The family of this 176-nucleotide sequence from Lachnoclostridium phytofermentans is "Lysine riboswitch aptamer".

RNA sequence: ACAAUUGGUAGAGGUGCAUCAAUUAUCAGUAAACAAUCGGAUAUGUCAGGCAUAGAUGAGGAUUUGUUGAAAGGAUGAGAUGCCGAAGCUUUAGAUAUCCUGAGUAUGUAAGGCUGGUCGUAUGAUGAAGAAUCAUGGGACUGUCAUCAAGUUAUUGAUGGAGAGCUACCUAAAGA
Numbered sequence: 001a002c003a004a005u006u007g008g009u010a011g012a013g014g015u016g017c018a019u020c021a022a023u024u025a026u027c028a029g030u031a032a033a034c035a036a037u038c039g040g041a042u043a044u045g046u047c048a049g050g051c052a053u054a055g056a057u058g059a060g061g062a063u064u065u066g067u068u069g070a071a072a073g074g075a076u077g078a079g080a081u082g083c084c085g086a087a088g089c090u091u092u093a094g095a096u097a098u099c100c101u102g103a104g105u106a107u108g109u110a111a112g113g114c115u116g117g118u119c120g121u122a123u124g125a126u127g128a129a130g131a132a133u134c135a136u137g138g139g140a141c142u143g144u145c146a147u148c149a150a151g152u153u154a155u156u157g158a159u160g161g162a163g164a165g166c167u168a169c170c171u172a173a174a175g176a
Base pairs, nucleotide, nucleotide: 007170008169009168010167011166016083017082018081019080020079024075032068033067034066035065036063037062038061087115088114089113090112091111092110093109095107096106097105098104116142117141118140119139121137122136123135124134125133126132144161145160146159147158148157149156150155
Lineage of the source: Bacteria > Bacillati > Bacillota > Lachnospiraceae > Lachnoclostridium phytofermentans.